[Rfam]
Rfam assigns this 115-nucleotide sequence from Neogobius melanostomus to the family "U5 spliceosomal RNA". Pairs were carried over by alignment from the consensus structure, which is taken from published work. Rfam classes the family as a spliceosomal small nuclear RNA. U5 RNA is a component of both types of known spliceosome. A search with the family's covariance model found it, with a score of 82 bits.
RNA sequence: UGCUCUUGUUUCUCUUCAAAUCGCAUAAAUCUUUCCCCUUUUACUAAAGAUUUCCGUGGAAAGGAACAACAAGAGAUUUUGACAAUUUUUUGGUGCUCUGCUUAACAGUGGGGCU
Numbered sequence: 001u002g003c004u005c006u007u008g009u010u011u012c013u014c015u016u017c018a019a020a021u022c023g024c025a026u027a028a029a030u031c032u033u034u035c036c037c038c039u040u041u042u043a044c045u046a047a048a049g050a051u052u053u054c055c056g057u058g059g060a061a062a063g064g065a066a067c068a069a070c071a072a073g074a075g076a077u078u079u080u081g082a083c084a085a086u087u088u089u090u091u092g093g094u095g096c097u098c099u100g101c102u103u104a105a106c107a108g109u110g111g112g113g114c115u
Base pairs, nucleotide, nucleotide: 003075004074005073006072008067009066010065011064012063013062015060016059017058018057027053028052029051030050031049032048033047034046093115095114096113097112098111099110100109